A member of the RNA family "MIR6288 microRNA precursor family" from Prunus avium, 92 nucleotides long. Gene Ontology terms of the family: miRNA-mediated post-transcriptional gene silencing and RISC complex. The source organism's lineage runs through Eukaryota, Streptophyta, rosids, Amygdaloideae and Prunus.
RNA sequence: CCAAAACUAACCACUUAUCAUUUUCUAAUUGCUUCUUAAUGAGUUAAAAAUUUAUAAGAACCAAUUAGAAAAUAAAAAGUGGCUAGUUUUGA
Numbered sequence: 001c002c003a004a005a006a007c008u009a010a011c012c013a014c015u016u017a018u019c020a021u022u023u024u025c026u027a028a029u030u031g032c033u034u035c036u037u038a039a040u041g042a043g044u045u046a047a048a049a050a051u052u053u054a055u056a057a058g059a060a061c062c063a064a065u066u067a068g069a070a071a072a073u074a075a076a077a078a079g080u081g082g083c084u085a086g087u088u089u090u091g092a
Stems, first nucleotide, its partner, number of pairs: 002091008011082006018075001020073012033060006